[Rfam]
Nucleotides: 075
Base pairs, nucleotide, nucleotide: 016024031071033069038065039064043060044059045058047056048055049054
Number, partner (000 for none) and nucleotide at each position: 001000c002000u003000u004000c005000a006000g007000c008000g009000a010000u011000c012000c013000c014000a015000g016024c017000a018000g019000c020000a021000g022000c023000g024016g025000g026000c027000g028000g029000u030000c031071c032000g033069g034000c035000u036000c037000c038065c039064g040000g041000u042000c043060g044059c045058g046000c047056c048055c049054g050000u051000a052000c053000g054049u055048g056047g057000c058045c059044g060043c061000g062000a063000g064039c065038g066000c067000g068000u069033c070000g071031g072000c073000c074000u075000c